[Rfam]
RNA: nhaA-I RNA
Organism: Methylobacterium symbioticum
RNA sequence: GGGUGCGCGGCCCGUGUCGGGUCGGCAGGUCUUUGCGUUGGUCGGGCCGCCAGCG
Numbered sequence: 001g002g003g004u005g006c007g008c009g010g011c012c013c014g015u016g017u018c019g020g021g022u023c024g025g026c027a028g029g030u031c032u033u034u035g036c037g038u039u040g041g042u043c044g045g046g047c048c049g050c051c052a053g054c055g
Base pairs, nucleotide, nucleotide: 005026006025008024009023010022011021012020036055037054038053039052040051041050042049